Shown here is a 61-nucleotide RNA from Dissostichus mawsoni, a member of the family "Selenocysteine insertion sequence 1". By type it is a cis-regulatory element. Pairs were carried over by alignment from the consensus structure, which is taken from published work. Rfam describes the family as follows. The incorporation of selenocysteine into a protein sequence is directed by an in-frame UGA codon (usually a stop codon) within the coding region of the mRNA. Selenoprotein mRNAs contain a conserved secondary structure in the 3' UTR that is required for the distinction of UGA stop from UGA selenocysteine. The selenocysteine insertion sequence (SECIS) is around 60 nt in length and adopts a hairpin structure which is sufficiently well-defined and conserved to act as a computational screen for selenoprotein genes. The source organism's lineage runs through Eukaryota, Opisthokonta, Teleostomi, Perciformes and Dissostichus. A search with the family's covariance model found it, with a score of 37 bits.

RNA sequence: CAGGCGUUUAUGAUGGUCCGGCCUUAAAGCUCUCAGCAGGUCUGACCGGAUGUCCCGCCUC
Numbered sequence: 001c002a003g004g005c006g007u008u009u010a011u012g013a014u015g016g017u018c019c020g021g022c023c024u025u026a027a028a029g030c031u032c033u034c035a036g037c038a039g040g041u042c043u044g045a046c047c048g049g050a051u052g053u054c055c056c057g058c059c060u061c
Base pairs, nucleotide, nucleotide: 002060003059004058005057015047016046017045018044020042021041022040023039024038029037030036031035